[Rfam]
RNA: FMN riboswitch aptamer (RFN element)
RNA sequence: AACAUGUUCCGGGGACGGUGAAAUUCCGUGCCGGCGGUGACAGUCCGCGACCCGAGCGCAGCAGUGCGAUCGGCCGACUCGGUGGAAUUCCGAGACCGACAGUAAAAGUCUGGAUGGGAGGAACAGGAC
Numbered sequence: 001a002a003c004a005u006g007u008u009c010c011g012g013g014g015a016c017g018g019u020g021a022a023a024u025u026c027c028g029u030g031c032c033g034g035c036g037g038u039g040a041c042a043g044u045c046c047g048c049g050a051c052c053c054g055a056g057c058g059c060a061g062c063a064g065u066g067c068g069a070u071c072g073g074c075c076g077a078c079u080c081g082g083u084g085g086a087a088u089u090c091c092g093a094g095a096c097c098g099a100c101a102g103u104a105a106a107a108g109u110c111u112g113g114a115u116g117g118g119a120g121g122a123a124c125a126g127g128a129c
Stems, first nucleotide, its partner, number of pairs: 003127001005125006016028003030109002032098002034048004043096002052073002078094005100112003